Overview: The record is a 69-nucleotide sequence from Nezara viridula, which matches "mir-965 microRNA precursor family" in Rfam. For this family Rfam cites "The regulation of silkworm fibroin L chain production by miRNA-965 and miRNA-1926 in insect cells" (Huang et al., Bioorg Khim, 2012). Rfam links the family to the GO terms miRNA-mediated post-transcriptional gene silencing and RISC complex. It scores 60 bits against the family's covariance model.
[Rfam]
Nucleotides: 069
Base pairs, nucleotide, nucleotide: 002067003066004065005064006063009061010060011059013057014056017053018052019051020050021049026045027044028043029042030041
Number, partner (000 for none) and nucleotide at each position: 001000g002067u003066u004065g005064a006063g007000a008000a009061g010060g011059g012000a013057a014056a015000g016000g017053c018052u019051g020050u021049a022000c023000a024000g025000a026045u027044u028043a029042u030041g031000u032000g033000u034000u035000a036000a037000g038000a039000g040000u041030c042029a043028u044027a045026a046000g047000c048000g049021u050020a051019u052018a053017g054000c055000u056014u057013u058000u059011c060010c061009c062000c063006u064005u065004u066003g067002a068000a069000c